A member of the RNA family "Small nucleolar RNA SNORA1" from Ursus americanus, 130 nucleotides long.
Pairs were carried over by alignment from the consensus structure, which was predicted with PFOLD.
The source organism's lineage runs through Eukaryota, Opisthokonta, Deuterostomia, Craniata and Ursus.
The family has 29 seed sequences and 1,282 matches in Rfam 15.1.
From the family's description: ACA1 is a member of the H/ACA class of snoRNA that guide the sites of modification of uridines to pseudouridines.

[Rfam]
RNA sequence: UGCCACUACAGGAUAGUCUUUCAAGAAAAAUGAUCAAGAAGGGAAGCCAAAAGUGGCUACAUUGAGACACAGAUUAUGCUUCCAUCACAGCAAGUUUAUUGCAGUGGUGACAAUGAGGGCUGUAACAUUU
Numbered sequence: 001u002g003c004c005a006c007u008a009c010a011g012g013a014u015a016g017u018c019u020u021u022c023a024a025g026a027a028a029a030a031u032g033a034u035c036a037a038g039a040a041g042g043g044a045a046g047c048c049a050a051a052a053g054u055g056g057c058u059a060c061a062u063u064g065a066g067a068c069a070c071a072g073a074u075u076a077u078g079c080u081u082c083c084a085u086c087a088c089a090g091c092a093a094g095u096u097u098a099u100u101g102c103a104g105u106g107g108u109g110a111c112a113a114u115g116a117g118g119g120c121u122g123u124a125a126c127a128u129u130u
Stems, first nucleotide, its partner, number of pairs: 002057003006053001017042005069123004083109006